This 87-nucleotide RNA sequence from Pyrus ussuriensis x Pyrus communis belongs to the Rfam family "Small nucleolar RNA R11/Z151". The literature on the family includes a 2001 paper in J Mol Biol by Barneche et al., "Identification of 66 box C/D snoRNAs in Arabidopsis thaliana: extensive gene duplications generated multiple isoforms predicting new ribosomal RNA 2'-O-methylation sites". The family's consensus secondary structure was predicted with PFOLD. Rfam 15.1 lists 802 matches to the family in 218 species. Lineage of the source: Eukaryota > Streptophytina > Tracheophyta > Amygdaloideae > Pyrus.
RNA sequence: GGGCUUAUGAUGAAAAUUUUCAAUAUCUUAGCGGAUUUCAGUGAGACCUUAGUGUCAAUGAUCUGAAUGUUACACACACUGAAGCCC
Number, nucleotide and partner (000 for none) at each position: 001g087002g086003g085004c084005u083006u000007a000008u000009g000010a000011u000012g000013a000014a000015a000016a000017u000018u000019u000020u000021c000022a000023a000024u000025a000026u000027c000028u000029u000030a000031g000032c000033g000034g000035a000036u000037u000038u000039c000040a000041g000042u000043g000044a000045g000046a000047c000048c000049u000050u000051a000052g000053u000054g000055u000056c000057a000058a000059u000060g000061a000062u000063c000064u000065g000066a000067a000068u000069g000070u000071u000072a000073c000074a000075c000076a000077c000078a000079c000080u000081g000082a000083a005084g004085c003086c002087c001